[Rfam]
RNA sequence: UAGGCUUCUCUUGACUCCAUUGUGCGUAUUAGCCUUUAUGGUUUGUGGGCAGCGUCUAAAUGGGAAGCAUAAACGAUUGUUCCUCUCGCUAUCCGGCGCGGAGUUUUUUGAUGCGAUUGGACGUCGAGGAACGACACUU
Numbered sequence: 001u002a003g004g005c006u007u008c009u010c011u012u013g014a015c016u017c018c019a020u021u022g023u024g025c026g027u028a029u030u031a032g033c034c035u036u037u038a039u040g041g042u043u044u045g046u047g048g049g050c051a052g053c054g055u056c057u058a059a060a061u062g063g064g065a066a067g068c069a070u071a072a073a074c075g076a077u078u079g080u081u082c083c084u085c086u087c088g089c090u091a092u093c094c095g096g097c098g099c100g101g102a103g104u105u106u107u108u109u110g111a112u113g114c115g116a117u118u119g120g121a122c123g124u125c126g127a128g129g130a131a132c133g134a135c136a137c138u139u
Stems, first nucleotide, its partner, number of pairs: 001072001004068002008064003015052001021051003025047004031043003079132007087123002092121005103109001
RNA: Small nucleolar RNA snoR136